[Rfam]
RNA: Plant signal recognition particle RNA
RNA sequence: GCUGAGCCUUGUAACGCGGGCUUGUAACCUAAGUGGGGGCAACAAUGUGGUGGGAUGUUAGGCAGUUCUUGAUGGCUGGACUUUGGUUGGCAUUAGUCUGGCCUGCCCUAUCCAAGCACGGAGUUGAGUCACGUGGUCCAGACGAAAGUAUGGGCUGCUUGGAUCUUAGAGUGGGGUGGACUGCGUGAGGCUGGUUUCACAGAGCAACGAACAGCCUCCUACUUUGUGCAGUGGAAGGAUAACGAGCCAGUGCUCUCCAAUUUCAACAAAAACCUGAUUAGCUGAUUAAUUAAACCACCACUUUU
Number, nucleotide and partner (000 for none) at each position: 001g040002c039003u038004g023005a022006g021007c020008c019009u018010u000011g000012u000013a000014a000015c000016g000017c000018g009019g008020g007021c006022u005023u004024g000025u000026a000027a000028c037029c036030u035031a000032a000033g000034u000035g030036g029037g028038g003039g002040c001041a000042a000043c000044a304045a303046u000047g301048u300049g299050g298051u297052g296053g295054g000055a000056u292057g291058u289059u288060a287061g286062g000063c284064a283065g282066u281067u000068c000069u000070u000071g000072a000073u000074g274075g273076c000077u271078g264079g263080a262081c000082u260083u259084u000085g257086g256087u000088u000089g254090g253091c000092a000093u000094u000095a000096g000097u000098c250099u249100g248101g247102c246103c000104u244105g243106c000107c238108c237109u000110a000111u235112c234113c233114a232115a000116g229117c228118a227119c226120g225121g224122a223123g222124u221125u000126g165127a164128g000129u162130c161131a160132c000133g158134u157135g156136g155137u154138c153139c152140a151141g000142a149143c148144g000145a000146a000147a000148g143149u142150a000151u140152g139153g138154g137155c136156u135157g134158c133159u000160u131161g130162g129163a000164u127165c126166u171167u000168a000169g000170a000171g166172u000173g218174g217175g216176g215177u214178g000179g000180a000181c000182u211183g000184c209185g208186u207187g000188a000189g000190g000191c202192u201193g200194g000195u000196u000197u000198c000199a000200c193201a192202g191203a000204g000205c000206a000207a186208c185209g184210a000211a182212c000213a000214g177215c176216c175217u174218c173219c000220u000221a124222c123223u122224u121225u120226g119227u118228g117229c116230a000231g000232u114233g113234g112235a111236a000237g108238g107239a000240u000241a000242a000243c105244g104245a000246g102247c101248c100249a099250g098251u000252g000253c090254u089255c000256u086257c085258c000259a083260a082261u000262u080263u079264c078265a000266a000267c000268a000269a000270a000271a077272a000273c075274c074275u000276g000277a000278u000279u000280a000281g066282c065283u064284g063285a000286u061287u060288a059289a058290u000291u057292a056293a000294a000295c053296c052297a051298c050299c049300a048301c047302u000303u045304u044305u000